[Rfam]
This 148-nucleotide RNA from Candidatus Methanoperedens sp. belongs to the Rfam family "Group II catalytic intron D1-D4-7". Its family is annotated with Group II intron splicing in the Gene Ontology. Group II introns are found in rRNA, tRNA and mRNA of organelles in fungi, plants and protists, and also in mRNA in bacteria. The family has 244 seed sequences and 1,296 matches in Rfam 15.1.

RNA sequence: UACCCUUCCGUUUGGGGUAAUCCUACUGAGAUAUGCACUGGUGGCAACACCGGGGUGUAAAGCUCUCAGGACAAUAUGGAGAAAUUUAAAAUUAAUUUGAGUAUAGGAGGAAUUUGGUCAAUUCUGUGAUCAUGUCGCCAUAAAAGAC
Numbered sequence: 001u002a003c004c005c006u007u008c009c010g011u012u013u014g015g016g017g018u019a020a021u022c023c024u025a026c027u028g029a030g031a032u033a034u035g036c037a038c039u040g041g042u043g044g045c046a047a048c049a050c051c052g053g054g055g056u057g058u059a060a061a062g063c064u065c066u067c068a069g070g071a072c073a074a075u076a077u078g079g080a081g082a083a084a085u086u087u088a089a090a091a092u093u094a095a096u097u098u099g100a101g102u103a104u105a106g107g108a109g110g111a112a113u114u115u116g117g118u119c120a121a122u123u124c125u126g127u128g129a130u131c132a133u134g135u136c137g138c139c140a141u142a143a144a145a146g147a148c
Stems, first nucleotide, its partner, number of pairs: 003016003027068005032059005038053006083098002086095003099119002102116001126148002